[Rfam]
RNA sequence: ACUCAGGCACGAGCUGCGCCUUAAAACGCGUGCGUAGUAGCGACCUGAAGUAUCAAUCCUGAGGGA
Numbered sequence: 001a002c003u004c005a006g007g008c009a010c011g012a013g014c015u016g017c018g019c020c021u022u023a024a025a026a027c028g029c030g031u032g033c034g035u036a037g038u039a040g041c042g043a044c045c046u047g048a049a050g051u052a053u054c055a056a057u058c059c060u061g062a063g064g065g066a
Base pairs, nucleotide, nucleotide: 001051002050003049004047005046006045007044013038014037015036016035017034018033019032
A member of the RNA family "L31-Corynebacteriaceae ribosomal protein leader" from Corynebacterium gerontici, 66 nucleotides long.
Pairs were carried over by alignment from the consensus structure, which is taken from published work.
A search with the family's covariance model found it, with a score of 65 bits.
The family's RNA type in Rfam is cis-regulatory leader.